[Rfam]
RNA sequence: CCAGUACAAACUGAACAGGCCAAAAGCACACCAGCUUUGGAGCCGGGCCGCAAACGCGGCAGCAGAUUUUAGCGUCAUGCACAUCUGCGGGACAGGA
Numbered sequence: 001c002c003a004g005u006a007c008a009a010a011c012u013g014a015a016c017a018g019g020c021c022a023a024a025a026g027c028a029c030a031c032c033a034g035c036u037u038u039g040g041a042g043c044c045g046g047g048c049c050g051c052a053a054a055c056g057c058g059g060c061a062g063c064a065g066a067u068u069u070u071a072g073c074g075u076c077a078u079g080c081a082c083a084u085c086u087g088c089g090g091g092a093c094a095g096g097a
Stems, first nucleotide, its partner, number of pairs: 011095003016091001018044003022038002025036003047060005062088006
This 97-nucleotide sequence from Breznakiella homolactica belongs to the Rfam family "NiCo (Nickel/Cobalt) riboswitch aptamer". For this family Rfam cites "Bacterial riboswitches cooperatively bind Ni(2+) or Co(2+) ions and control expression of heavy metal transporters" (Furukawa et al., Mol Cell, 2015). Gene Ontology terms of the family: metal ion homeostasis and cobalt ion binding.